[Rfam]
RNA sequence: AGGAGGCAGUCGAGGGAAUCUGAGAAAGUGCACAAGGUUUGUGUCUGAUAUGCUUCACACCUUGCGCUACUCAGGUCCUCUUGUGCCCUCCC
Numbered sequence: 001a002g003g004a005g006g007c008a009g010u011c012g013a014g015g016g017a018a019u020c021u022g023a024g025a026a027a028g029u030g031c032a033c034a035a036g037g038u039u040u041g042u043g044u045c046u047g048a049u050a051u052g053c054u055u056c057a058c059a060c061c062u063u064g065c066g067c068u069a070c071u072c073a074g075g076u077c078c079u080c081u082u083g084u085g086c087c088c089u090c091c092c
Stems, first nucleotide, its partner, number of pairs: 002091005011083004016078001018076007027068006035062004040052005
RNA: mir-3200 microRNA precursor family